Shown here is a 59-nucleotide sequence from Oceanicola sp. 22II-s10i, a member of the family "terC RNA". A search with the family's covariance model found it, with a score of 50 bits. It is annotated as a cis-regulatory element.

[Rfam]
RNA sequence: AACGGUGACCGGGCCCCUCUGGCGGAAGCGGCGGCUCUUUCGUGAUGUCGGCACCGAAA
Numbered sequence: 001a002a003c004g005g006u007g008a009c010c011g012g013g014c015c016c017c018u019c020u021g022g023c024g025g026a027a028g029c030g031g032c033g034g035c036u037c038u039u040u041c042g043u044g045a046u047g048u049c050g051g052c053a054c055c056g057a058a059a
Base pairs, nucleotide, nucleotide: 006053007052009051010050011049012048022043023042024041025040026039027038028037